A member of the RNA family "c-di-AMP riboswitch aptamer (ydaO/yuaA leader)" from Xylanibacillus composti, 135 nucleotides long. A search with the family's covariance model found it, with a score of 75 bits. Rfam's curators write: This family represents a conserved RNA structure found upstream of the ydaO and yuaA genes in Bacillus subtilis and related genes in other bacteria. NCBI's taxonomy places the organism under Bacteria, Bacillati, Bacilli, Caryophanales, Xylanibacillus.
Nucleotides: 135
Base pairs, nucleotide, nucleotide: 011121012120013119014118018030019029020028031116032115033114034113035112036111050101051100052099058079059078060077061076062075063074082095083094
Number, partner (000 for none) and nucleotide at each position: 001000c002000a003000g004000g005000a006000g007000a008000a009000g010000u011121c012120g013119c014118c015000u016000a017000a018030u019029u020028c021000c022000a023000g024000u025000a026000u027000g028020g029019a030018a031116a032115c033114g034113g035112g036111g037000g038000a039000a040000c041000c042000a043000a044000g045000u046000u047000u048000c049000a050101g051100g052099g053000u054000g055000a056000a057000u058079u059078g060077g061076c062075c063074g064000g065000c066000a067000u068000c069000g070000u071000u072000c073000g074063c075062g076061g077060c078059c079058a080000u081000a082095g083094g084000g085000a086000a087000c088000c089000u090000u091000c092000a093000a094083c095082c096000g097000a098000a099052c100051c101050c102000g103000g104000u105000a106000g107000c108000u109000a110000a111036c112035c113034u114033c115032g116031u117000a118014g119013g120012c121011g122000c123000g124000g125000a126000a127000g128000g129000a130000g131000u132000c133000u134000u135000g